[Rfam]
RNA sequence: AAAAAAUCCCGGGGGGGCUGGUGUUGCUGGCUGAGAGUAAGAACGAAAUUCUUAGACCCUUUUAACCUGAACUGGAUAAUUCCAGCGUAGGAAGAGGUUUUACAUAUACA
Numbered sequence: 001a002a003a004a005a006a007u008c009c010c011g012g013g014g015g016g017g018c019u020g021g022u023g024u025u026g027c028u029g030g031c032u033g034a035g036a037g038u039a040a041g042a043a044c045g046a047a048a049u050u051c052u053u054a055g056a057c058c059c060u061u062u063u064a065a066c067c068u069g070a071a072c073u074g075g076a077u078a079a080u081u082c083c084a085g086c087g088u089a090g091g092a093a094g095a096g097g098u099u100u101u102a103c104a105u106a107u108a109c110a
Stems, first nucleotide, its partner, number of pairs: 006098003010094001011060004017031005038054005066091004072085004
The family of this 110-nucleotide RNA sequence from Clostridium sp. HMP27 is "TPP riboswitch aptamer (THI element)". The source organism's lineage runs through Bacteria, Bacillota, Clostridia, Eubacteriales and Clostridium.